Baculoviridae Nucleocapsid Assembly essential Element: a 201-nucleotide RNA from Alphabaculovirus peluscae. By type it is a cis-regulatory element. Internal cis-element within the ac83 gene. On this family, see Huang et al., J Virol 2017: "The Autographa californica Multiple Nucleopolyhedrovirus ac83 Gene Contains a cis-Acting Element That Is Essential for Nucleocapsid Assembly". Its family is annotated with viral capsid assembly in the Gene Ontology.
RNA sequence: CAUUUUUACACAUCGUAUAUACAGCAAUAUACUACACAAUGAUUUUUGUCACAGUUUAUUAGAUACAAUCGGUCACCAAUAUACUACGAUUCCUAGUAAAUAUACUACGAUGUUGCCUGAAUAUACGUUCAAUAAUGUAAACAACCCAAAAUAUAUCGAAAGAUAUGAGGCAAAUAUACCGAAAAACGGUGUUACGAUUUU
Numbered sequence: 001c002a003u004u005u006u007u008a009c010a011c012a013u014c015g016u017a018u019a020u021a022c023a024g025c026a027a028u029a030u031a032c033u034a035c036a037c038a039a040u041g042a043u044u045u046u047u048g049u050c051a052c053a054g055u056u057u058a059u060u061a062g063a064u065a066c067a068a069u070c071g072g073u074c075a076c077c078a079a080u081a082u083a084c085u086a087c088g089a090u091u092c093c094u095a096g097u098a099a100a101u102a103u104a105c106u107a108c109g110a111u112g113u114u115g116c117c118u119g120a121a122u123a124u125a126c127g128u129u130c131a132a133u134a135a136u137g138u139a140a141a142c143a144a145c146c147c148a149a150a151a152u153a154u155a156u157c158g159a160a161a162g163a164u165a166u167g168a169g170g171c172a173a174a175u176a177u178a179c180c181g182a183a184a185a186a187c188g189g190u191g192u193u194a195c196g197a198u199u200u201u
Stems, first nucleotide, its partner, number of pairs: 008193001010192003015032006037054001040051004137179002146170002153164002156161001